The family of this 220-nucleotide sequence from Drosophila bipectinata is "R2 RNA element". The literature on the family includes a 2004 paper in RNA by Ruschak et al., "Secondary structure models of the 3' untranslated regions of diverse R2 RNAs". NCBI's taxonomy places the organism under Eukaryota, Allotriocarida, Insecta, Diptera, bipectinata species complex. This family represents the 3' UTR region of the R2 retrotransposable element. This family is known to interact with the R2-encoded reverse transcriptase in a reaction known as target primed reverse transcription (TPRT).

RNA sequence: ACUUAAUCAUGCAUCACGUUCAUAUUAAAAGCUUGCUGCCGUAGCAUAACAUCUAAAAACGGCAUAAAAUUCGCUUAAAAACGAGGCCUUUUUUAGUACGUAGGCGUCUUCUGGGUCGUAUGAACCCACAAGAUGAAUCGUGCAUGCACACUCUUAUUGGCUAAAUAACAUCAUAACCUGAGUGUGUAUCUUUUGAAGAUUUUUACGAUCCUUAGCGAAC
Numbered sequence: 001a002c003u004u005a006a007u008c009a010u011g012c013a014u015c016a017c018g019u020u021c022a023u024a025u026u027a028a029a030a031g032c033u034u035g036c037u038g039c040c041g042u043a044g045c046a047u048a049a050c051a052u053c054u055a056a057a058a059a060c061g062g063c064a065u066a067a068a069a070u071u072c073g074c075u076u077a078a079a080a081a082c083g084a085g086g087c088c089u090u091u092u093u094u095a096g097u098a099c100g101u102a103g104g105c106g107u108c109u110u111c112u113g114g115g116u117c118g119u120a121u122g123a124a125c126c127c128a129c130a131a132g133a134u135g136a137a138u139c140g141u142g143c144a145u146g147c148a149c150a151c152u153c154u155u156a157u158u159g160g161c162u163a164a165a166u167a168a169c170a171u172c173a174u175a176a177c178c179u180g181a182g183u184g185u186g187u188a189u190c191u192u193u194u195g196a197a198g199a200u201u202u203u204u205a206c207g208a209u210c211c212u213u214a215g216c217g218a219a220c
Stems, first nucleotide, its partner, number of pairs: 037064006070219005083213004089207001096143005105135005113126002116123002145188009